[Rfam]
RNA sequence: GGGUGAGGUAGAGGCGCGAUUACUAAGAGUACCUAUAUUAAGGCCGGAAGCCAAUGAUGUAUAGGGAAAGGAGUUAUCGCCGAAGUGUCAGAUACCAAAAUCUGAGGCUGGGCCUGCAUCGAAUAGGUGUAGGACUGUCAUCAUUGUAUCUGCCCGAUACUUUGAUGUUGAGCUAUCUCACUA
Numbered sequence: 001g002g003g004u005g006a007g008g009u010a011g012a013g014g015c016g017c018g019a020u021u022a023c024u025a026a027g028a029g030u031a032c033c034u035a036u037a038u039u040a041a042g043g044c045c046g047g048a049a050g051c052c053a054a055u056g057a058u059g060u061a062u063a064g065g066g067a068a069a070g071g072a073g074u075u076a077u078c079g080c081c082g083a084a085g086u087g088u089c090a091g092a093u094a095c096c097a098a099a100a101u102c103u104g105a106g107g108c109u110g111g112g113c114c115u116g117c118a119u120c121g122a123a124u125a126g127g128u129g130u131a132g133g134a135c136u137g138u139c140a141u142c143a144u145u146g147u148a149u150c151u152g153c154c155c156g157a158u159a160c161u162u163u164g165a166u167g168u169u170g171a172g173c174u175a176u177c178u179c180a181c182u183a
Stems, first nucleotide, its partner, number of pairs: 006178006016080005022074003032065007084109003088105006110136002113133008139167005

Rfam assigns this 183-nucleotide sequence from Schnuerera ultunensis to the family "Lysine riboswitch aptamer". The source organism's lineage runs through Bacteria, Bacillati, Tissierellia, Tepidimicrobiaceae and Schnuerera ultunensis. The base pairs follow the family's consensus structure, which is taken from published work.